[Rfam]
RNA sequence: AGCAUAUUUUGCGAUGGCGGAGCUCGACCGCCCCGGCAGAUGAUGAUGGCGUUUAUCGACGCCCAUCGCGAGGAUUUGGGGAUCGAGCCGAUCUGCCGCGAGCUGGCAAUGGCCCCU
Numbered sequence: 001a002g003c004a005u006a007u008u009u010u011g012c013g014a015u016g017g018c019g020g021a022g023c024u025c026g027a028c029c030g031c032c033c034c035g036g037c038a039g040a041u042g043a044u045g046a047u048g049g050c051g052u053u054u055a056u057c058g059a060c061g062c063c064c065a066u067c068g069c070g071a072g073g074a075u076u077u078g079g080g081g082a083u084c085g086a087g088c089c090g091a092u093c094u095g096c097c098g099c100g101a102g103c104u105g106g107c108a109a110u111g112g113c114c115c116c117u
Stems, first nucleotide, its partner, number of pairs: 016032005078117004089112001092109001094108005
The family of this 117-nucleotide RNA sequence from Sphingobium sp. TCM1 is "ALIL pseudoknot".
The family's consensus secondary structure is taken from published work.
Lineage of the source: Bacteria > Pseudomonadati > Alphaproteobacteria > Sphingobiaceae > Sphingobium.
The match comes from Rfam's covariance-model search (86 bits).
The family's RNA type in Rfam is cis-regulatory element.
Its family is annotated with positive regulation of translational frameshifting in the Gene Ontology.